[Rfam]
RNA sequence: GCGUCCGUCCCGUGGAAUGCCCUCACACCAGAACGCCCGUCCCGGCUACGCUGACCGGGUGCGCCUUCCACGGGAAGCCGCAAAGCCGACAGCCGUCGCACUCCAGGGAGCUCAUUCAUG
Numbered sequence: 001g002c003g004u005c006c007g008u009c010c011c012g013u014g015g016a017a018u019g020c021c022c023u024c025a026c027a028c029c030a031g032a033a034c035g036c037c038c039g040u041c042c043c044g045g046c047u048a049c050g051c052u053g054a055c056c057g058g059g060u061g062c063g064c065c066u067u068c069c070a071c072g073g074g075a076a077g078c079c080g081c082a083a084a085g086c087c088g089a090c091a092g093c094c095g096u097c098g099c100a101c102u103c104c105a106g107g108g109a110g111c112u113c114a115u116u117c118a119u120g
Base pairs, nucleotide, nucleotide: 060082061081062080063079065077066076067075068074085099086098088097089096090095
This 120-nucleotide sequence from Streptomyces sp. YIM 121038 belongs to the Rfam family "Streptomyces-metH RNA". By type it is a small RNA. The match comes from Rfam's covariance-model search (112 bits).